[Rfam]
RNA sequence: GGGCAAGAUAGGUGAAGUUAGCUAACCAGCGAGCUGGUUGCCAAACUUCACGAGUCUUAUUCACACCUUCGGUGCUCAACGUAAAAACCGAUGAUAUA
Numbered sequence: 001g002g003g004c005a006a007g008a009u010a011g012g013u014g015a016a017g018u019u020a021g022c023u024a025a026c027c028a029g030c031g032a033g034c035u036g037g038u039u040g041c042c043a044a045a046c047u048u049c050a051c052g053a054g055u056c057u058u059a060u061u062c063a064c065a066c067c068u069u070c071g072g073u074g075c076u077c078a079a080c081g082u083a084a085a086a087a088c089c090g091a092u093g094a095u096a097u098a
Stems, first nucleotide, its partner, number of pairs: 002095001004093002007089001009087001012051006019044001021042001024039006055083001056081001064074004
A member of the RNA family "traJ-II RNA" from Legionella waltersii, 98 nucleotides long. It is annotated as a cis-regulatory element. NCBI's taxonomy places the organism under Bacteria, Gammaproteobacteria, Legionellales, Legionellaceae, Legionella. The base pairs follow the family's consensus structure, which is taken from published work. The match comes from Rfam's covariance-model search (49 bits).